[Rfam]
RNA: Small nucleolar RNA Z157/R69/R10
RNA sequence: AAGAGUGCUGUGAUGUAGCACUUUUUUUUGUGGACUAGAGUUUCUGAUCUGGGUUUCACUCACUGAAGUAGAAGACUAACCCUUGGCUGUCUGAGUACCCUU
Numbered sequence: 001a002a003g004a005g006u007g008c009u010g011u012g013a014u015g016u017a018g019c020a021c022u023u024u025u026u027u028u029u030g031u032g033g034a035c036u037a038g039a040g041u042u043u044c045u046g047a048u049c050u051g052g053g054u055u056u057c058a059c060u061c062a063c064u065g066a067a068g069u070a071g072a073a074g075a076c077u078a079a080c081c082c083u084u085g086g087c088u089g090u091c092u093g094a095g096u097a098c099c100c101u102u
Stems, first nucleotide, its partner, number of pairs: 001102003005098004041074004048067001049065001051063001053061001